[Rfam]
RNA sequence: GUCGGCGUCGUCACCGUCCAGCCGACGACCGUGCCGGUCGUCACCGAAUUGCCGGGCCGCACUAGCGCCUUCCUCGUGGCGCAGGUGCGCGCACGGGUCGACGGCAUCGUGCUGCGCCGCGAGUUUACCGAAGGCAGCCAGGUGAAGGCGGGCCAGCGUCUGUACAAGAUCGA
Numbered sequence: 001g002u003c004g005g006c007g008u009c010g011u012c013a014c015c016g017u018c019c020a021g022c023c024g025a026c027g028a029c030c031g032u033g034c035c036g037g038u039c040g041u042c043a044c045c046g047a048a049u050u051g052c053c054g055g056g057c058c059g060c061a062c063u064a065g066c067g068c069c070u071u072c073c074u075c076g077u078g079g080c081g082c083a084g085g086u087g088c089g090c091g092c093a094c095g096g097g098u099c100g101a102c103g104g105c106a107u108c109g110u111g112c113u114g115c116g117c118c119g120c121g122a123g124u125u126u127a128c129c130g131a132a133g134g135c136a137g138c139c140a141g142g143u144g145a146a147g148g149c150g151g152g153c154c155a156g157c158g159u160c161u162g163u164a165c166a167a168g169a170u171c172g173a
Stems, first nucleotide, its partner, number of pairs: 003054005008047003011043001013041002016038001018037002021034002023031002056149003059143002067135002072133001074131002079092004094121002097118001099116002102114005157172002159169003
About this RNA
The record is a 173-nucleotide sequence from Paraburkholderia panacisoli, which matches "Burkholderia RNA 14" in Rfam. Its family is annotated with protein binding in the Gene Ontology. Rfam's curators write: Co-purified with Hfq, expression confirmed by Northern blot. Putative functional homologue of PA-SraF. Overlaps coding sequence. A reference for the family is Ramos et al. (2013), "Experimental identification of small non-coding regulatory RNAs in the opportunistic human pathogen Burkholderia cenocepacia J2315", Genomics.